[Rfam]
Shown here is a 175-nucleotide sequence from Acinetobacter qingfengensis, a member of the family "Acinetobacter sRNA 28". It is annotated as a small RNA. The match comes from Rfam's covariance-model search (51 bits). For this family Rfam cites "Identification of novel regulatory small RNAs in Acinetobacter baumannii" (Sharma et al., PLoS One, 2014).

RNA sequence: AAGAUUUUAUACCCAUAUUGAAAUAUUAGGAGGACGUCAUGCUUUUAUCUGGAAAACCUAACUUAAACUGAUUAAGCAUACGUCUGCUCACGGACAUAGGUUUAAUCACUGAUAUGUCCGAAUGCAAAGCAAUCAAGAUCUGGCAUUCGCCGGAUUUUUUUAUGUCUAGAUUUUA
Numbered sequence: 001a002a003g004a005u006u007u008u009a010u011a012c013c014c015a016u017a018u019u020g021a022a023a024u025a026u027u028a029g030g031a032g033g034a035c036g037u038c039a040u041g042c043u044u045u046u047a048u049c050u051g052g053a054a055a056a057c058c059u060a061a062c063u064u065a066a067a068c069u070g071a072u073u074a075a076g077c078a079u080a081c082g083u084c085u086g087c088u089c090a091c092g093g094a095c096a097u098a099g100g101u102u103u104a105a106u107c108a109c110u111g112a113u114a115u116g117u118c119c120g121a122a123u124g125c126a127a128a129g130c131a132a133u134c135a136a137g138a139u140c141u142g143g144c145a146u147u148c149g150c151c152g153g154a155u156u157u158u159u160u161u162a163u164g165u166c167u168a169g170a171u172u173u174u175a
Stems, first nucleotide, its partner, number of pairs: 003134001006128003014124002016028002019025002030089003033084005040078005055063001091120008136157009165175001